[Rfam]
RNA: MIR396 microRNA precursor family
Organism: Setaria italica
RNA sequence: CUUUGUGAUCUUCCACAGCUUUCUUGAACUGCAUCUGCAAAGGAGAUGCGCCUUCUGCUACUUGCGUGGGCACGUGCAGUUCAAUAAAGCUGUGGGAAACUACAGAGA
Numbered sequence: 001c002u003u004u005g006u007g008a009u010c011u012u013c014c015a016c017a018g019c020u021u022u023c024u025u026g027a028a029c030u031g032c033a034u035c036u037g038c039a040a041a042g043g044a045g046a047u048g049c050g051c052c053u054u055c056u057g058c059u060a061c062u063u064g065c066g067u068g069g070g071c072a073c074g075u076g077c078a079g080u081u082c083a084a085u086a087a088a089g090c091u092g093u094g095g096g097a098a099a100c101u102a103c104a105g106a107g108a
Base pairs, nucleotide, nucleotide: 003105004104005103006102007101013095014094015093017091018090019089020088021087022086024084025083026082027081029079030078031077032076033075